Description
Shown here is a 99-nucleotide RNA from Geotrypetes seraphini, a member of the family "mir-130 microRNA precursor family".
RNA sequence: UGCCGGCCAGUGCACUGAAUGCUCUGCGCUGCUCCCGACGCUCAUAGGAAGUCUGUGAGUGUCAGAAGCAGCGCAGAGCAUUCAGUGCACUGGCCGGCA
Dot-bracket structure: (((.((((((.((((((((..((((((((((((.................................))))))))))))..)))))))).)))))).)))
The organism belongs to Geotrypetes, within Eukaryota. Rfam 15.1 lists 2,580 matches to the family in 658 species.